[Rfam]
RNA sequence: UGACCACUUUCGCGCUCAGAAAGGCGGAAGUCAAGCCCACACGGACAGGCGGGUCAAACGCCGG
Numbered sequence: 001u002g003a004c005c006a007c008u009u010u011c012g013c014g015c016u017c018a019g020a021a022a023g024g025c026g027g028a029a030g031u032c033a034a035g036c037c038c039a040c041a042c043g044g045a046c047a048g049g050c051g052g053g054u055c056a057a058a059c060g061c062c063g064g
Base pairs, nucleotide, nucleotide: 001056002055003054004053005052006031007030008029009028010027011026012025013024

About this RNA: This 64-nucleotide RNA from Clostridium sp. CAG:58 belongs to the Rfam family "Streptococcus sRNA SpF59 (ldcC RNA)". Rfam classes the family as a small RNA. On this family, see Mann et al., PLoS Pathog 2012: "Control of virulence by small RNAs in Streptococcus pneumoniae". The sequence is in the family's curated seed alignment.